[Rfam]
This 75-nucleotide RNA sequence from Alligator mississippiensis belongs to the Rfam family "Mammalian CPEB3 ribozyme". The family's consensus secondary structure is taken from published work.
RNA sequence: UUGGAAGUUUAACGUUAUAGUAGAAGUACUUGUGGCACAGCCGUGUCAAAUUCUAAUGAAUCUGUGAAUUCUGCU
Numbered sequence: 001u002u003g004g005a006a007g008u009u010u011a012a013c014g015u016u017a018u019a020g021u022a023g024a025a026g027u028a029c030u031u032g033u034g035g036c037a038c039a040g041c042c043g044u045g046u047c048a049a050a051u052u053c054u055a056a057u058g059a060a061u062c063u064g065u066g067a068a069u070u071c072u073g074c075u
Base pairs, nucleotide, nucleotide: 013043014042015040016039019075020074021073022072023071024070025069026038027037047064048063050061051060052059053058

Notes
It scores 36 bits against the family's covariance model.